A member of the RNA family "mir-449 microRNA precursor family" from Calidris pygmaea, 83 nucleotides long. On this family, see Linsen et al., BMC Genomics 2010: "Small RNA expression and strain specificity in the rat". The match comes from Rfam's covariance-model search (61 bits). The family's consensus secondary structure was predicted with RNAalifold. The family has 41 seed sequences and 325 matches in Rfam 15.1.
[Rfam]
RNA sequence: UGUGUGUGAUGGGAUGGCAGUGUAUGUUAGCUGGUUGAAAUUCUGACACCAGCUAACAUGCAGUUGCUGUCCUUUUGCACAUA
Dot-bracket structure: (((((((((.(((.((((((((((.((((((((((............)))))))))).))).))))))).))).)))))))))
Numbered sequence: 001u002g003u004g005u006g007u008g009a010u011g012g013g014a015u016g017g018c019a020g021u022g023u024a025u026g027u028u029a030g031c032u033g034g035u036u037g038a039a040a041u042u043c044u045g046a047c048a049c050c051a052g053c054u055a056a057c058a059u060g061c062a063g064u065u066g067c068u069g070u071c072c073u074u075u076u077g078c079a080c081a082u083a
Stems, first nucleotide, its partner, number of pairs: 001083009011073003015069007022061003026057010